Background: The family of this 87-nucleotide sequence from Medicago truncatula is "MIR2617 microRNA precursor family". The match comes from Rfam's covariance-model search (52 bits).

Nucleotides: 087
Base pairs, nucleotide, nucleotide: 002087004085007082008081009080010079011078013076014075016074017073018072020070021069
Number, partner (000 for none) and nucleotide at each position: 001000a002087u003000g004085u005000a006000g007082u008081g009080u010079g011078a012000c013076a014075u015000g016074c017073c018072c019000a020070u021069u022000u023000g024000g025000a026000a027000a028000u029000u030000a031000c032000a033000c034000u035000g036000a037000u038000g039000c040000a041000u042000g043000u044000u045000u046000u047000a048000u049000u050000a051000a052000u053000u054000a055000a056000u057000u058000g059000a060000u061000u062000u063000u064000u065000g066000g067000g068000a069021a070020a071000c072018g073017g074016g075014g076013u077000a078011u079010u080009a081008c082007a083000a084000a085004a086000a087002a